[Rfam]
RNA sequence: GUUGGGGUAGGAACGACUGGGUUACUGUCCACCGGAACGGAAUGUGAACGGUGGAAGAAGGCUUUGGUCGCCUUGUGGUUCCGCAUUCACCACU
Numbered sequence: 001g002u003u004g005g006g007g008u009a010g011g012a013a014c015g016a017c018u019g020g021g022u023u024a025c026u027g028u029c030c031a032c033c034g035g036a037a038c039g040g041a042a043u044g045u046g047a048a049c050g051g052u053g054g055a056a057g058a059a060g061g062c063u064u065u066g067g068u069c070g071c072c073u074u075g076u077g078g079u080u081c082c083g084c085a086u087u088c089a090c091c092a093c094u
Stems, first nucleotide, its partner, number of pairs: 001094001003092003010082005016076002019073004026056001029054006040088005060069003
The record is a 94-nucleotide RNA from Limosilactobacillus coleohominis, which matches "THF (Tetrahydrofolate) riboswitch aptamer" in Rfam.
The family's consensus secondary structure is taken from published work.
Taxonomically the source falls in Limosilactobacillus coleohominis (Bacteria, Bacillota, Bacilli, Lactobacillales).
A search with the family's covariance model found it, with a score of 46 bits.